[Rfam]
RNA sequence: GCAGAGUGGUGAUGAUGAACUGGUUGGACUAGAGUCUCUGAAUGGUUCUCUGAGGAUCUUUGAAAUCACCUGAUCCACUCUU
Dot-bracket structure: ..(((((((........(.(.(((.(....(((.((((.((.......)).)))).)))......).))).).)))))))).
Numbered sequence: 001g002c003a004g005a006g007u008g009g010u011g012a013u014g015a016u017g018a019a020c021u022g023g024u025u026g027g028a029c030u031a032g033a034g035u036c037u038c039u040g041a042a043u044g045g046u047u048c049u050c051u052g053a054g055g056a057u058c059u060u061u062g063a064a065a066u067c068a069c070c071u072g073a074u075c076c077a078c079u080c081u082u
Stems, first nucleotide, its partner, number of pairs: 003081007018074001020072001022070003026066001031059003035055004040050002